[Rfam]
RNA sequence: GGAAGAGAUUCGUUCCCCGGUGGGGCGGCCGGACUUCAAAUCCGGUAAGGGUCGUCAGACGAUCCUUGGUGGGUUCGACUCCCACUCUCUUCC
Number, nucleotide and partner (000 for none) at each position: 001g093002g092003a091004a090005g089006a088007g087008a086009u000010u000011c027012g026013u025014u000015c024016c023017c022018c000019g000020g000021u000022g017023g016024g015025g013026c012027g011028g046029c045030c044031g043032g042033a041034c000035u000036u000037c000038a000039a000040a000041u033042c032043c031044g030045g029046u028047a000048a066049g065050g064051g063052u062053c000054g000055u000056c000057a000058g000059a000060c000061g000062a052063u051064c050065c049066u048067u000068g000069g000070u084071g083072g082073g081074u000075u000076c000077g000078a000079c000080u000081c073082c072083c071084a070085c000086u008087c007088u006089c005090u004091u003092c002093c001
RNA: Selenocysteine transfer RNA